Background: The family of this 68-nucleotide sequence from Pogona vitticeps is "mir-367 microRNA precursor family". Rfam links the family to the GO terms miRNA-mediated post-transcriptional gene silencing and RISC complex. For this family Rfam cites "The expression profile of microRNAs in mouse embryos" (Mineno et al., Nucleic Acids Res, 2006). The source organism's lineage runs through Eukaryota, Gnathostomata, Dipnotetrapodomorpha, Agamidae and Pogona.
RNA sequence: CUUUUACUGUUGCUAAUAUGCAGCUCUGUCCUGUAAAAUCUGGAAUUGCACUUUAGCAAUGGUGAGGG
Numbered sequence: 001c002u003u004u005u006a007c008u009g010u011u012g013c014u015a016a017u018a019u020g021c022a023g024c025u026c027u028g029u030c031c032u033g034u035a036a037a038a039u040c041u042g043g044a045a046u047u048g049c050a051c052u053u054u055a056g057c058a059a060u061g062g063u064g065a066g067g068g
Stems, first nucleotide, its partner, number of pairs: 005064012019050005025044004